Shown here is a 98-nucleotide sequence from Caenorhabditis brenneri, a member of the family "mir-244 microRNA precursor family". Gene Ontology terms of the family: miRNA-mediated post-transcriptional gene silencing and RISC complex.
RNA sequence: CCCCAUUUCUCGAUCUCUUUGGUUGUACAAAGUGGUAUGGCAAUUUCAUUAAAAAUGCUCAUACCGCUUUUCAGCUGAAGGAAUCGUGUUUGUGGGUA
Numbered sequence: 001c002c003c004c005a006u007u008u009c010u011c012g013a014u015c016u017c018u019u020u021g022g023u024u025g026u027a028c029a030a031a032g033u034g035g036u037a038u039g040g041c042a043a044u045u046u047c048a049u050u051a052a053a054a055a056u057g058c059u060c061a062u063a064c065c066g067c068u069u070u071u072c073a074g075c076u077g078a079a080g081g082a083a084u085c086g087u088g089u090u091u092g093u094g095g096g097u098a
Base pairs, nucleotide, nucleotide: 002096003095004094005093009088011086012085013084014083016081017080018079019078020077021076022075023074024073025072029070030069031068032067033066034065035064036063037062038061039060040058041057

Taxonomically the source falls in Caenorhabditis (Eukaryota, Opisthokonta, Eumetazoa, Rhabditina).